[Rfam]
This 279-nucleotide RNA from Rhinopomastus cyanomelas belongs to the Rfam family "Small Cajal body specific RNA 6".
About the family: U88 is small Cajal body specific RNA (scaRNA). scaRNAs are a novel class of small nuclear RNAs which localise to the Cajal bodies. U88 is found associated with both fibrillarin and Gar1p and co-localises with coilin in Cajal bodies.
A search with the family's covariance model found it, with a score of 103 bits.
The source organism's lineage runs through Eukaryota, Vertebrata, Gnathostomata, Neognathae and Rhinopomastus.
The family has 17 seed sequences and 1,309 matches in Rfam 15.1.
Gene Ontology terms of the family: RNA processing and nucleolus.
RNA sequence: GGUCGAUGAUGCCAAGUAAAAGGCCUGAGGGCACAGGGGACUUGCACGCCGUUACCUCCUGGCUCCCAGCAGUCGCCCUUCUGUCGUGUGCUGUCACCCCACAGCAGAGCGGUGACGGAGGAGGAGACUGCUGACAGCUUGGGAUUAGUUCAGUUCCAGUUCUCCAGAGCGAAGGGAGUUGUGGCACUGGGUGUCAUCCGACAGCGCCCGUCAGAGGAGCUCGUGGUAGCGGAGUGCCUGAAUGGGUUGUGCGUGAUCUAAAGUUUUCAAGCUGAGACC
Numbered sequence: 001g002g003u004c005g006a007u008g009a010u011g012c013c014a015a016g017u018a019a020a021a022g023g024c025c026u027g028a029g030g031g032c033a034c035a036g037g038g039g040a041c042u043u044g045c046a047c048g049c050c051g052u053u054a055c056c057u058c059c060u061g062g063c064u065c066c067c068a069g070c071a072g073u074c075g076c077c078c079u080u081c082u083g084u085c086g087u088g089u090g091c092u093g094u095c096a097c098c099c100c101a102c103a104g105c106a107g108a109g110c111g112g113u114g115a116c117g118g119a120g121g122a123g124g125a126g127a128c129u130g131c132u133g134a135c136a137g138c139u140u141g142g143g144a145u146u147a148g149u150u151c152a153g154u155u156c157c158a159g160u161u162c163u164c165c166a167g168a169g170c171g172a173a174g175g176g177a178g179u180u181g182u183g184g185c186a187c188u189g190g191g192u193g194u195c196a197u198c199c200g201a202c203a204g205c206g207c208c209c210g211u212c213a214g215a216g217g218a219g220c221u222c223g224u225g226g227u228a229g230c231g232g233a234g235u236g237c238c239u240g241a242a243u244g245g246g247u248u249g250u251g252c253g254u255g256a257u258c259u260a261a262a263g264u265u266u267u268c269a270a271g272c273u274g275a276g277a278c279c
Stems, first nucleotide, its partner, number of pairs: 001279004035259003045236003049232004063219004067133007091118008099109001141199001143198003147194001156184003162178004